[Rfam]
RNA: U7 small nuclear RNA
Organism: Otolemur garnettii
RNA sequence: UAGUGUUACAACUCUUAGAAUUUGUCUAGUAGGUUUUACAGUCCUCACCAGAAGACUCCU
Numbered sequence: 001u002a003g004u005g006u007u008a009c010a011a012c013u014c015u016u017a018g019a020a021u022u023u024g025u026c027u028a029g030u031a032g033g034u035u036u037u038a039c040a041g042u043c044c045u046c047a048c049c050a051g052a053a054g055a056c057u058c059c060u
Base pairs, nucleotide, nucleotide: 032057033056034055035054036053037052041048042047